Record summary
Shown here is a 76-nucleotide RNA from Apaloderma vittatum, a member of the family "Small nucleolar RNA SNORD83". The source organism's lineage runs through Eukaryota, Metazoa, Neognathae, Neoaves and Apaloderma. On this family, see Jady and Kiss, Nucleic Acids Res 2000: "Characterisation of the U83 and U84 small nucleolar RNAs: two novel 2'-O-ribose methylation guide RNAs that lack complementarities to ribosomal RNAs". Rfam links the family to the GO terms RNA processing and nucleolus. Pairs were carried over by alignment from the consensus structure, which was predicted with PFOLD.
RNA sequence: GCCAGAUGAUGCGAAGUGGAUGACAUGAGCACUCUGUGCAGAGAUGACCUUCAUCUAUCACCCCAUACUGAUGGCU
Numbered sequence: 001g002c003c004a005g006a007u008g009a010u011g012c013g014a015a016g017u018g019g020a021u022g023a024c025a026u027g028a029g030c031a032c033u034c035u036g037u038g039c040a041g042a043g044a045u046g047a048c049c050u051u052c053a054u055c056u057a058u059c060a061c062c063c064c065a066u067a068c069u070g071a072u073g074g075c076u
Base pairs, nucleotide, nucleotide: 001075002074003073004072029039030038031037032036